[Rfam]
RNA sequence: CCGGCUGAGGAGCGCUGCAGCGGACAUCCGUCAGGCUCAGCCGGGGGUCUUUUCAACCAUGCAACGGCGCUCAUCCAGA
Numbered sequence: 001c002c003g004g005c006u007g008a009g010g011a012g013c014g015c016u017g018c019a020g021c022g023g024a025c026a027u028c029c030g031u032c033a034g035g036c037u038c039a040g041c042c043g044g045g046g047g048u049c050u051u052u053u054c055a056a057c058c059a060u061g062c063a064a065c066g067g068c069g070c071u072c073a074u075c076c077a078g079a
Stems, first nucleotide, its partner, number of pairs: 002043007021030003